Description: Small nucleolar RNA snoR8a: a 75-nucleotide sequence from Aquilegia coerulea. NCBI's taxonomy places the organism under Eukaryota, Viridiplantae, Embryophyta, Euphyllophyta, Aquilegia. The family's RNA type in Rfam is C/D-box small nucleolar RNA. The base pairs follow the family's consensus structure, which was predicted with WAR.
RNA sequence: GUGAUUGUGAUGAUUAUAAAAAAUUCCUCGUACUGACUACUGAAUGCUUAAAAUUCAUAUAGAAUAUGAGCAUUC
Number, nucleotide and partner (000 for none) at each position: 001g000002u000003g075004a074005u000006u072007g071008u000009g000010a000011u000012g000013a000014u000015u000016a000017u000018a000019a000020a000021a000022a000023a000024u000025u000026c000027c000028u000029c000030g000031u000032a000033c000034u000035g000036a000037c000038u000039a000040c000041u000042g000043a000044a000045u000046g000047c000048u000049u000050a000051a000052a000053a000054u000055u000056c000057a000058u000059a000060u000061a000062g000063a000064a000065u000066a000067u000068g000069a000070g000071c007072a006073u000074u004075c003